Shown here is a 74-nucleotide sequence from Micropruina sp., a member of the family "tRNA". Pairs were carried over by alignment from the consensus structure, which is taken from published work. Lineage of the source: Bacteria > Actinomycetota > Propionibacteriales > Nocardioidaceae > Micropruina.

RNA sequence: GGCCCCGUAGCCCAACCGGCAGAGGCAGGCGGCUUAAACCCGCCCGAGUGUGGGUUCGACUCCCAUCGGGGGCA
Number, nucleotide and partner (000 for none) at each position: 001g073002g000003c071004c070005c069006c068007g067008u000009a000010g026011c025012c024013c000014a000015a000016c000017c000018g000019g000020c000021a000022g000023a000024g012025g011026c010027a000028g044029g043030c042031g041032g040033c000034u000035u000036a000037a000038a000039c000040c032041c031042g030043c029044c028045c000046g000047a000048g000049u000050g066051u065052g064053g063054g062055u000056u000057c000058g000059a000060c000061u000062c054063c053064c052065a051066u050067c007068g006069g005070g004071g003072g000073c001074a000